[Rfam]
RNA: Small nucleolar RNA snoR111
RNA sequence: CAUUUUUAAAGAGAGUUGCAUUAUAACUUUUUCUGGAUCCGAAGCUAUGGUAUAUAGAAGUUAGUUAAGAUAUCGCUUCAGUCCUUCCUUCUACUAUUUGGUUUGGCGAUUCGAUUGUUGACUUAACAACAU
Numbered sequence: 001c002a003u004u005u006u007u008a009a010a011g012a013g014a015g016u017u018g019c020a021u022u023a024u025a026a027c028u029u030u031u032u033c034u035g036g037a038u039c040c041g042a043a044g045c046u047a048u049g050g051u052a053u054a055u056a057g058a059a060g061u062u063a064g065u066u067a068a069g070a071u072a073u074c075g076c077u078u079c080a081g082u083c084c085u086u087c088c089u090u091c092u093a094c095u096a097u098u099u100g101g102u103u104u105g106g107c108g109a110u111u112c113g114a115u116u117g118u119u120g121a122c123u124u125a126a127c128a129a130c131a132u
Base pairs, nucleotide, nucleotide: 006037007036009034011032013029014028015027016026017025018024064127066125067124068123069122072115073114074113075112081110082109083108085106086105090101